[Rfam]
RNA sequence: GACGUUGUGACAGUAAUCCAAUUUAGUACGAGAGGAACAGUUGGUUCGGAUACUUGGUUAAUGCGGCUAGUUGAAAAGCUAGUGCCGCGAAGCUACCAUCCGUUGGAUAAUGACUGAACGCCUCUAAGUCAGAAUCCAUGCUGAACAUCAACGUUUUCCAUCACUUUUGGCGCUUUCGCAACGCUAUAUGCCUGCAGUUCCCACGGCUCUGCCGUCAACACAAUUUCUCCCGCCCAAAGUGAUACAUCCAUCGCAGACGACCUUGACGCACCCGGGUAUUGUAAGCGCGAGAGUAGGCUUGUCUUACGAUCCGCUGAGAUUCUACCCGAGGUGCUCGAUGUGU
Number, nucleotide and partner (000 for none) at each position: 001g155002a154003c153004g152005u151006u150007g149008u000009g000010a000011c143012a142013g141014u140015a000016a046017u000018c044019c043020a042021a041022u040023u039024u000025a000026g000027u000028a000029c000030g000031a000032g000033a000034g000035g000036a000037a000038c000039a023040g022041u021042u020043g019044g018045u000046u016047c102048g101049g100050a099051u098052a000053c000054u000055u095056g094057g093058u000059u000060a000061a000062u089063g088064c087065g086066g085067c082068u081069a080070g079071u078072u077073g000074a000075a000076a000077a072078g071079c070080u069081a068082g067083u000084g000085c066086c065087g064088c063089g062090a000091a000092g000093c057094u056095a055096c000097c000098a051099u050100c049101c048102g047103u000104u138105g137106g136107a000108u000109a000110a000111u131112g130113a129114c128115u127116g000117a000118a000119c000120g000121c000122c000123u000124c000125u000126a000127a115128g114129u113130c112131a111132g000133a000134a000135u000136c106137c105138a104139u000140g014141c013142u012143g011144a000145a000146c000147a000148u000149c007150a006151a005152c004153g003154u002155u001156u000157u000158c000159c000160a000161u000162c000163a240164c239165u238166u237167u236168u000169g234170g000171c000172g000173c000174u000175u000176u000177c000178g000179c000180a000181a000182c000183g000184c000185u000186a000187u000188a000189u000190g000191c000192c000193u000194g000195c000196a000197g000198u000199u000200c000201c000202c000203a000204c000205g000206g000207c000208u000209c000210u000211g000212c000213c000214g000215u000216c000217a000218a000219c000220a000221c000222a000223a000224u000225u000226u000227c000228u000229c000230c000231c000232g000233c000234c169235c000236a167237a166238a165239g164240u163241g000242a000243u000244a341245c340246a339247u338248c337249c265250a264251u000252c000253g261254c000255a000256g000257a000258c000259g000260a000261c253262c000263u000264u250265g249266a000267c000268g000269c333270a332271c331272c330273c000274g327275g326276g325277u000278a320279u319280u000281g000282u000283a000284a000285g314286c313287g312288c000289g000290a310291g000292a000293g307294u306295a305296g304297g303298c000299u000300u000301g000302u000303c297304u296305u295306a294307c293308g000309a000310u290311c000312c287313g286314c285315u000316g000317a000318g000319a279320u278321u000322c000323u000324a000325c276326c275327c274328g000329a000330g272331g271332u270333g269334c000335u000336c000337g248338a247339u246340g245341u244342g000343u000
A member of the RNA family "Eukaryotic large subunit ribosomal RNA" from Theileria parva, 343 nucleotides of a longer RNA.
The family's consensus secondary structure is taken from published work.
Rfam links the family to the GO terms ribosome and structural constituent of ribosome.
NCBI's taxonomy places the organism under Eukaryota, Sar, Alveolata, Piroplasmida, Theileria.
For this family Rfam cites "Crystal structure of the ribosome at 5.5 A resolution" (Yusupov et al., Science, 2001).
Rfam's curators put it in the seed alignment.